[Rfam]
RNA: Eukaryotic large subunit ribosomal RNA, nucleotides 418 to 764
Organism: uncultured marine alveolate
RNA sequence: CGAUUGGAAUCAACGUCGUUAAGGAAUUGGGGCGCAAGCUGUUUCAUCCCGCUUUGACGAGUAUUCGUUCUGGUUGGUUUGGCGCGGCUUGUUGUUCCGGAUCCCUUGAAGACAUCUGACACUGGUGGAUGAGCCGUCUACACCGCCGAUUGAAAUUCCUUCGGGAUGAUCUUUUGGAAGUGGCGGCUUUUGCACUGGCGGUACGCAUAUUGUUGGACCGUUCUGGAUUUCUGAGUCUGUUGUUCUCUGUCGUACUCUCGGCUUGAACGCAGGUGAUGAAAGAAGGGGCUCGAAGCGAUAUGUGGUGUCAGACCCGCAGGUUCCAAUUGACCCGUCUUGAAACACGG
Numbered sequence: 001c002g003a004u005u006g007g008a009a010u011c012a013a014c015g016u017c018g019u020u021a022a023g024g025a026a027u028u029g030g031g032g033c034g035c036a037a038g039c040u041g042u043u044u045c046a047u048c049c050c051g052c053u054u055u056g057a058c059g060a061g062u063a064u065u066c067g068u069u070c071u072g073g074u075u076g077g078u079u080u081g082g083c084g085c086g087g088c089u090u091g092u093u094g095u096u097c098c099g100g101a102u103c104c105c106u107u108g109a110a111g112a113c114a115u116c117u118g119a120c121a122c123u124g125g126u127g128g129a130u131g132a133g134c135c136g137u138c139u140a141c142a143c144c145g146c147c148g149a150u151u152g153a154a155a156u157u158c159c160u161u162c163g164g165g166a167u168g169a170u171c172u173u174u175u176g177g178a179a180g181u182g183g184c185g186g187c188u189u190u191u192g193c194a195c196u197g198g199c200g201g202u203a204c205g206c207a208u209a210u211u212g213u214u215g216g217a218c219c220g221u222u223c224u225g226g227a228u229u230u231c232u233g234a235g236u237c238u239g240u241u242g243u244u245c246u247c248u249g250u251c252g253u254a255c256u257c258u259c260g261g262c263u264u265g266a267a268c269g270c271a272g273g274u275g276a277u278g279a280a281a282g283a284a285g286g287g288g289c290u291c292g293a294a295g296c297g298a299u300a301u302g303u304g305g306u307g308u309c310a311g312a313c314c315c316g317c318a319g320g321u322u323c324c325a326a327u328u329g330a331c332c333c334g335u336c337u338u339g340a341a342a343c344a345c346g347g
Stems, first nucleotide, its partner, number of pairs: 001329011017111001019109005116311009332347004